[Rfam]
RNA sequence: GCUGAGCUCAGCAACUCGAGCUUGUAACCCAUGGGGGUAUUCAGGUGCUUUUAAUGAUUCAUUUGUUCCAUUUGCUGGGUUGUAUUGGGCCGAAUAUUGACCUGCCUGAUCCAAGAUGGGUAGUUAAUUGCAACUGGUUUAGGCGAAGGCCUAAAUUAGUUGUGCUCUAAAUUAGAGGGGAACGCGUGAGGCUGGUUUAACAGAGCAGCGAUUACCUUUAGCUCUCAUCGGUGGAUGGAUAACGGGCUGGUGGUCUGGGCAAACCAAGUAGCCGUUGGGCCUGGUGAACCAAACGGGCACU
Numbered sequence: 001g002c003u004g005a006g007c008u009c010a011g012c013a014a015c016u017c018g019a020g021c022u023u024g025u026a027a028c029c030c031a032u033g034g035g036g037g038u039a040u041u042c043a044g045g046u047g048c049u050u051u052u053a054a055u056g057a058u059u060c061a062u063u064u065g066u067u068c069c070a071u072u073u074g075c076u077g078g079g080u081u082g083u084a085u086u087g088g089g090c091c092g093a094a095u096a097u098u099g100a101c102c103u104g105c106c107u108g109a110u111c112c113a114a115g116a117u118g119g120g121u122a123g124u125u126a127a128u129u130g131c132a133a134c135u136g137g138u139u140u141a142g143g144c145g146a147a148g149g150c151c152u153a154a155a156u157u158a159g160u161u162g163u164g165c166u167c168u169a170a171a172u173u174a175g176a177g178g179g180g181a182a183c184g185c186g187u188g189a190g191g192c193u194g195g196u197u198u199a200a201c202a203g204a205g206c207a208g209c210g211a212u213u214a215c216c217u218u219u220a221g222c223u224c225u226c227a228u229c230g231g232u233g234g235a236u237g238g239a240u241a242a243c244g245g246g247c248u249g250g251u252g253g254u255c256u257g258g259g260c261a262a263a264c265c266a267a268g269u270a271g272c273c274g275u276u277g278g279g280c281c282u283g284g285u286g287a288a289c290c291a292a293a294c295g296g297g298c299a300c301u
Base pairs, nucleotide, nucleotide: 001038002037003036004023005022006021007020008019009018011016028035029034044301045300046299047298048297049296050295055291056290058288059287060286062283065280066279068278069277070276072274074272075271076270077269078265079264080263081261082260083259085257087256088255089254091252092251097250098249099248101246102245103244104243106238107237109236110235111234112233113232115229116228117227118226119225120224122223123222124221127166129164130163131162132161133160134159135158136157137156138155139154140153141152142151143150144149173220174219175218176217177216178215185210186209187208192203193202194201
This 301-nucleotide sequence from Dendrobium catenatum belongs to the Rfam family "Plant signal recognition particle RNA". A search with the family's covariance model found it, with a score of 170 bits. Taxonomically the source falls in Dendrobium (Eukaryota, Tracheophyta, Liliopsida, Epidendroideae). Clan: SRP clan.